[Rfam]
RNA sequence: UUAUAUAGGAUAGCGCCAGACCUGAAUUAGACAGGUGACGAGGAUAGAACUUAUCGAAAAUUUCGGCGGAUGGUUCUAGGAACUGCAUUCUAAAAAUUUAUUUAAAAAUAAAACAGUGAUGUUUUUGACAGAGGAUAAAUUAAGCAGAACA
Number, nucleotide and partner (000 for none) at each position: 001u000002u000003a000004u000005a000006u000007a000008g000009g000010a000011u000012a000013g000014c000015g000016c000017c000018a000019g000020a036021c035022c034023u033024g032025a000026a000027u000028u000029a000030g000031a000032c024033a023034g022035g021036u020037g000038a000039c000040g000041a000042g000043g000044a000045u000046a077047g076048a075049a074050c073051u000052u000053a000054u066055c065056g064057a063058a000059a000060a000061u000062u000063u057064c056065g055066g054067c000068g000069g000070a000071u000072g000073g050074u049075u048076c047077u046078a091079g090080g089081a088082a000083c000084u000085g000086c000087a000088u081089u080090c079091u078092a000093a000094a000095a141096a140097u139098u138099u137100a136101u135102u000103u000104a000105a000106a000107a000108a000109u000110a125111a124112a123113a122114c121115a120116g000117u000118g000119a000120u115121g114122u113123u112124u111125u110126u000127g000128a000129c000130a000131g000132a000133g000134g000135a101136u100137a099138a098139a097140u096141u095142a000143a000144g000145c000146a000147g000148a000149a000150c000151a000
RNA: glmS glucosamine-6-phosphate activated ribozyme aptamer